The record is an 82-nucleotide sequence from Actinobaculum sp. 352, which matches "ZMP/ZTP riboswitch aptamer (pfl RNA motif)" in Rfam.
The family's consensus secondary structure is taken from published work.

[Rfam]
RNA sequence: GAUGCCGGUCGCGACUGGCGUUGAAGGUGGGUCACCACCGGGGAGUGACCCGCCGCACAAGCCGCGCGCCUGGGCAUUCCAA
Numbered sequence: 001g002a003u004g005c006c007g008g009u010c011g012c013g014a015c016u017g018g019c020g021u022u023g024a025a026g027g028u029g030g031g032u033c034a035c036c037a038c039c040g041g042g043g044a045g046u047g048a049c050c051c052g053c054c055g056c057a058c059a060a061g062c063c064g065c066g067c068g069c070c071u072g073g074g075c076a077u078u079c080c081a082a
Stems, first nucleotide, its partner, number of pairs: 004053002007050006015042002017070005027038004059077001061075003